RNA sequence: GAUUCAAGUGAUGACUAAAUACUGCAACAAAAUGAAGGGCAAAGCCUUUUUGAUUACAUAUAUUUAAGUCUCUGAUGAAUC
Numbered sequence: 001g002a003u004u005c006a007a008g009u010g011a012u013g014a015c016u017a018a019a020u021a022c023u024g025c026a027a028c029a030a031a032a033u034g035a036a037g038g039g040c041a042a043a044g045c046c047u048u049u050u051u052g053a054u055u056a057c058a059u060a061u062a063u064u065u066a067a068g069u070c071u072c073u074g075a076u077g078a079a080u081c
Stems, first nucleotide, its partner, number of pairs: 001081002004079001005077002035049005
The record is an 81-nucleotide RNA from Marchantia polymorpha, which matches "Small nucleolar RNA Z199" in Rfam. The family's RNA type in Rfam is C/D-box small nucleolar RNA. snoZ199 is a C/D box small nucleolar RNA, which acts as a methylation guide RNA for sites on 18S and 25S rRNA. Rice snoZ199 is reported to be homologous to Arabidopsis snoR13.